[Rfam]
RNA sequence: CGGCUGUAGCCAUAGCAAUAAUUUUUGAGAAGUUUACUGGCCGGUUGUUGUUUCUUUUCAUCGACAAAUCUGCUUACCGAACUUUUCACAUUU
Numbered sequence: 001c002g003g004c005u006g007u008a009g010c011c012a013u014a015g016c017a018a019u020a021a022u023u024u025u026u027g028a029g030a031a032g033u034u035u036a037c038u039g040g041c042c043g044g045u046u047g048u049u050g051u052u053u054c055u056u057u058u059c060a061u062c063g064a065c066a067a068a069u070c071u072g073c074u075u076a077c078c079g080a081a082c083u084u085u086u087c088a089c090a091u092u093u
Stems, first nucleotide, its partner, number of pairs: 027087008039074003043070004047065004

Overview:
This 93-nucleotide RNA sequence from Olea europaea belongs to the Rfam family "Small nucleolar RNA snoR109". Taxonomically the source falls in Olea europaea (Eukaryota, Streptophytina, asterids, Oleaceae). Rfam 15.1 lists 680 matches to the family in 220 species. It scores 81 bits against the family's covariance model. Gene Ontology terms of the family: nucleolus and RNA processing. For this family Rfam cites "Experimental RNomics: identification of 140 candidates for small non-messenger RNAs in the plant Arabidopsis thaliana" (Marker et al., Curr Biol, 2002).